The record is an 89-nucleotide RNA sequence from Paenalicyclobacillus mengziensis, which matches "c-di-GMP-I riboswitch aptamer" in Rfam.
NCBI's taxonomy places the organism under Bacteria, Bacillati, Bacillota, Bacilli, Paenalicyclobacillus.
The family's consensus secondary structure is taken from published work.

[Rfam]
RNA sequence: AAUGUCUCAGGGCAAACCAGUGGAAACACUGGGACGCAAAGCUACGGGUCUAAGGGUGCAGAAGUACCUAGGAUCGCCGGGUUGCCACA
Numbered sequence: 001a002a003u004g005u006c007u008c009a010g011g012g013c014a015a016a017c018c019a020g021u022g023g024a025a026a027c028a029c030u031g032g033g034a035c036g037c038a039a040a041g042c043u044a045c046g047g048g049u050c051u052a053a054g055g056g057u058g059c060a061g062a063a064g065u066a067c068c069u070a071g072g073a074u075c076g077c078c079g080g081g082u083u084g085c086c087a088c089a
Stems, first nucleotide, its partner, number of pairs: 012037002017032006040083004045079003048074003055068004